[Rfam]
RNA: c-di-GMP-I riboswitch aptamer
RNA sequence: ACUAGAUAAAGGCAAACUUGCUUAAAAGCAAGGACGCAAAGUUACGGGUCUAAGGGAACGUGGCAUUUCCUAGGAUCGCCGGACUGCCUAU
Number, nucleotide and partner (000 for none) at each position: 001a000002c000003u000004a000005g000006a000007u000008a000009a000010a000011g000012g037013c036014a000015a000016a000017c032018u031019u030020g029021c028022u027023u000024a000025a000026a000027a022028g021029c020030a019031a018032g017033g000034a000035c000036g013037c012038a000039a000040a085041g084042u083043u082044a000045c081046g080047g079048g076049u075050c074051u000052a000053a000054g000055g070056g069057a068058a067059c000060g000061u000062g000063g000064c000065a000066u000067u058068u057069c056070c055071u000072a000073g000074g050075a049076u048077c000078g000079c047080c046081g045082g043083a042084c041085u040086g000087c000088c000089u000090a000091u000